Shown here is a 101-nucleotide sequence from Compostibacillus humi, a member of the family "TPP riboswitch aptamer (THI element)".
The match comes from Rfam's covariance-model search (64 bits).

RNA sequence: GAAACCCACAAGGGGAGCUUAUUGCUGAGAGUGAACAUUUUUGUUCAGACCCUUUGAACCUGUAAGAUAAUGCUUGCGCAGGGAUGUGGUAAAGAGCAGUC
Numbered sequence: 001g002a003a004a005c006c007c008a009c010a011a012g013g014g015g016a017g018c019u020u021a022u023u024g025c026u027g028a029g030a031g032u033g034a035a036c037a038u039u040u041u042u043g044u045u046c047a048g049a050c051c052c053u054u055u056g057a058a059c060c061u062g063u064a065a066g067a068u069a070a071u072g073c074u075u076g077c078g079c080a081g082g083g084a085u086g087u088g089g090u091a092a093a094g095a096g097c098a099g100u101c
Stems, first nucleotide, its partner, number of pairs: 006089005011053004017025002032047005059082004063076004
About this RNA
The source organism's lineage runs through Bacteria, Bacilli, Caryophanales, Bacillaceae and Compostibacillus.